This 145-nucleotide RNA from Myotis myotis belongs to the Rfam family "ODC internal ribosome entry site (IRES)". The match comes from Rfam's covariance-model search (85 bits).

RNA sequence: AUUUCCACUGCUGCUCUGAGAGGACACCCAUCUUCCGCUGGACUUGGAAUUCCUGAAGAGCUACGUUUGUGAACAGCUGGCAAUAGUUUCUUAACUCCCAUAUCUUCGUUUUCCUUCGUGUUGCAUUUCAGAACAUCCAGAAACC
Numbered sequence: 001a002u003u004u005c006c007a008c009u010g011c012u013g014c015u016c017u018g019a020g021a022g023g024a025c026a027c028c029c030a031u032c033u034u035c036c037g038c039u040g041g042a043c044u045u046g047g048a049a050u051u052c053c054u055g056a057a058g059a060g061c062u063a064c065g066u067u068u069g070u071g072a073a074c075a076g077c078u079g080g081c082a083a084u085a086g087u088u089u090c091u092u093a094a095c096u097c098c099c100a101u102a103u104c105u106u107c108g109u110u111u112u113c114c115u116u117c118g119u120g121u122u123g124c125a126u127u128u129c130a131g132a133a134c135a136u137c138c139a140g141a142a143a144c145c
Stems, first nucleotide, its partner, number of pairs: 006080001010077003015072002017069004022064001024062001027060001040053003086144006096133001098131001